RNA sequence: AAACUCCUUCGGGGAAGGUGAAAUUCCUUACCGGCGGUAAAGCCCGCGAGCCGUAUGGUUGAUCUGGUGUAAUUCCAGGGCCGACAGUACAGUCUGGAUGGGAGAAGGAGAUA
Numbered sequence: 001a002a003a004c005u006c007c008u009u010c011g012g013g014g015a016a017g018g019u020g021a022a023a024u025u026c027c028u029u030a031c032c033g034g035c036g037g038u039a040a041a042g043c044c045c046g047c048g049a050g051c052c053g054u055a056u057g058g059u060u061g062a063u064c065u066g067g068u069g070u071a072a073u074u075c076c077a078g079g080g081c082c083g084a085c086a087g088u089a090c091a092g093u094c095u096g097g098a099u100g101g102g103a104g105a106a107g108g109a110g111a112u113a
Stems, first nucleotide, its partner, number of pairs: 004110007016028003030093002032083002034047004042081002050059003063079005085096003
A member of the RNA family "FMN riboswitch aptamer (RFN element)" from Thermanaerosceptrum fracticalcis, 113 nucleotides long. The match comes from Rfam's covariance-model search (114 bits). The source organism's lineage runs through Bacteria, Bacillati, Clostridia, Peptococcaceae and Thermanaerosceptrum.